[Rfam]
RNA sequence: AACAAUGAUGCAUAUUGUUUGCCUAUUGGAGCAUGCGACUCUAGUGAUGGAGUGGUGUGAAGCCUCCAAGACAAUGUAACCGAAAGGGGCUAGGCACAGUAAUUCUAUGGUUAACGAAAGUGAAUCAUGUGGUUG
Numbered sequence: 001a002a003c004a005a006u007g008a009u010g011c012a013u014a015u016u017g018u019u020u021g022c023c024u025a026u027u028g029g030a031g032c033a034u035g036c037g038a039c040u041c042u043a044g045u046g047a048u049g050g051a052g053u054g055g056u057g058u059g060a061a062g063c064c065u066c067c068a069a070g071a072c073a074a075u076g077u078a079a080c081c082g083a084a085a086g087g088g089g090c091u092a093g094g095c096a097c098a099g100u101a102a103u104u105c106u107a108u109g110g111u112u113a114a115c116g117a118a119a120g121u122g123a124a125u126c127a128u129g130u131g132g133u134u135g
Stems, first nucleotide, its partner, number of pairs: 002018006027068005032059005038053006082105002107128004114121002
RNA: Group II catalytic intron D1-D4-7
Organism: Pichia inconspicua